[Rfam]
RNA sequence: GCGUCAUAGUCAUUGUUGACCGUUCAUAUAACCCCUACAAUUGGUUUGCAGCUUAUGCAGGGGUUAUAUAACGGUCAACUGAGAACAUUGACAU
Numbered sequence: 001g002c003g004u005c006a007u008a009g010u011c012a013u014u015g016u017u018g019a020c021c022g023u024u025c026a027u028a029u030a031a032c033c034c035c036u037a038c039a040a041u042u043g044g045u046u047u048g049c050a051g052c053u054u055a056u057g058c059a060g061g062g063g064u065u066a067u068a069u070a071a072c073g074g075u076c077a078a079c080u081g082a083g084a085a086c087a088u089u090g091a092c093a094u
Base pairs, nucleotide, nucleotide: 001094003092004091005090006089010084011083013081015079016078017077018076019075020074021073022072023071024070026069027068028067029066030065031064032063033062034061035060036059038057039056043052
Dot-bracket structure: (.((((...((.(.((((((((((.(((((((((((.((...(........)...)).))))))))))))))))))))).).))....)))).)